Shown here is a 102-nucleotide RNA sequence from Panicum miliaceum, a member of the family "MIR2275 microRNA precursor family". Pairs were carried over by alignment from the consensus structure, which was predicted with RNAalifold.

[Rfam]
RNA sequence: GCACUGAAAGUGAGAGCUGGACGAAUACAAACCGAUUGAUUCAAGGCCAAAAACAUGGUCGCUGGAUCAGCUUGUUUUUCUCCAAUAUCUCAUCUUCAGUUG
Numbered sequence: 001g002c003a004c005u006g007a008a009a010g011u012g013a014g015a016g017c018u019g020g021a022c023g024a025a026u027a028c029a030a031a032c033c034g035a036u037u038g039a040u041u042c043a044a045g046g047c048c049a050a051a052a053a054c055a056u057g058g059u060c061g062c063u064g065g066a067u068c069a070g071c072u073u074g075u076u077u078u079u080c081u082c083c084a085a086u087a088u089c090u091c092a093u094c095u096u097c098a099g100u101u102g
Stems, first nucleotide, its partner, number of pairs: 004099005011092004016086001018084004023079003027075004032070001